[Rfam]
RNA sequence: UGCAAAUGAUGUUUUCUCACGAUGGUCUUCCAAGUCCUUCUGGGCGCUGACGAUGAUGCCUAAUGGCAACACUGAUGCAAUGCA
Numbered sequence: 001u002g003c004a005a006a007u008g009a010u011g012u013u014u015u016c017u018c019a020c021g022a023u024g025g026u027c028u029u030c031c032a033a034g035u036c037c038u039u040c041u042g043g044g045c046g047c048u049g050a051c052g053a054u055g056a057u058g059c060c061u062a063a064u065g066g067c068a069a070c071a072c073u074g075a076u077g078c079a080a081u082g083c084a
Stems, first nucleotide, its partner, number of pairs: 001079004
Rfam assigns this 84-nucleotide RNA from Cottoperca gobio to the family "Small nucleolar RNA SNORD35".
The literature on the family includes a 1996 paper in J Mol Biol by Nicoloso et al., "Intron-encoded, antisense small nucleolar RNAs: the characterization of nine novel species points to their direct role as guides for the 2'-O-ribose methylation of rRNAs".
Rfam's curators write: U35 is a C/D box snoRNA located in intron 6 of ribosomal protein L13A and intron 3 of ribosomal protein S11 in humans and at homologous positions in mouse and chicken ribosomal protein genes. U35 guides the methylation of 2'-O-ribose sites in 28S rRNA.
The family has 8 seed sequences and 1,842 matches in Rfam 15.1.
Gene Ontology terms of the family: RNA processing and nucleolus.
It is annotated as a C/D-box small nucleolar RNA.
The family's consensus secondary structure was predicted with PFOLD.